[Rfam]
Rfam assigns this 96-nucleotide RNA sequence from Vigna angularis to the family "MIR828 microRNA precursor family".
The family has 16 seed sequences and 204 matches in Rfam 15.1.
NCBI's taxonomy places the organism under Eukaryota, Spermatophyta, Gunneridae, Papilionoideae, Vigna angularis.

RNA sequence: UUAAUGUUUCUUGCUCAAAUGAGUAUUCCAUCUACACUUACACAUUGCUCAAUUUUAAUGUGUGGAUGAGAUGCUCAUUUGGGCAAGCAAUGUUAA
Numbered sequence: 001u002u003a004a005u006g007u008u009u010c011u012u013g014c015u016c017a018a019a020u021g022a023g024u025a026u027u028c029c030a031u032c033u034a035c036a037c038u039u040a041c042a043c044a045u046u047g048c049u050c051a052a053u054u055u056u057a058a059u060g061u062g063u064g065g066a067u068g069a070g071a072u073g074c075u076c077a078u079u080u081g082g083g084c085a086a087g088c089a090a091u092g093u094u095a096a
Base pairs, nucleotide, nucleotide: 004093005092006091007090008089010087011086012085013084014083015082016081017080018079019078020077021076022075023074024073025072026071027070029068030067031066032065033064034063
Dot-bracket structure: ...(((((.((((((((((((((((((.((((((............................)))))).)))))))))))))))))).)))))...